[Rfam]
RNA: Small nucleolar RNA SNORD107
Organism: Castor canadensis
RNA sequence: GGUUCGUGAUGACAAAGGACCUUGUCUGAACCUAAUGAUUUCAAACAUGAGCUUAAAACAACACUCUGAAGUC
Numbered sequence: 001g002g003u004u005c006g007u008g009a010u011g012a013c014a015a016a017g018g019a020c021c022u023u024g025u026c027u028g029a030a031c032c033u034a035a036u037g038a039u040u041u042c043a044a045a046c047a048u049g050a051g052c053u054u055a056a057a058a059c060a061a062c063a064c065u066c067u068g069a070a071g072u073c
Stems, first nucleotide, its partner, number of pairs: 001073004